[Rfam]
RNA: Small nucleolar RNA SNORA15
RNA sequence: GCAUGGAUGAAUUCUGCACUAGCUUUUCUCAAUAGCUACUGCAGUCAGACACUAUGCCAGAAUAAAUUCCCUCUUUACAUUCUGAUUGGUGCGCUUUCCAUAUGCAAAUGGGCAUGCCCUUGGAAGUGGGAUACAU
Numbered sequence: 001g002c003a004u005g006g007a008u009g010a011a012u013u014c015u016g017c018a019c020u021a022g023c024u025u026u027u028c029u030c031a032a033u034a035g036c037u038a039c040u041g042c043a044g045u046c047a048g049a050c051a052c053u054a055u056g057c058c059a060g061a062a063u064a065a066a067u068u069c070c071c072u073c074u075u076u077a078c079a080u081u082c083u084g085a086u087u088g089g090u091g092c093g094c095u096u097u098c099c100a101u102a103u104g105c106a107a108a109u110g111g112g113c114a115u116g117c118c119c120u121u122g123g124a125a126g127u128g129g130g131a132u133a134c135a136u
Stems, first nucleotide, its partner, number of pairs: 001057006014044005070129002073126004085121001088118004093113004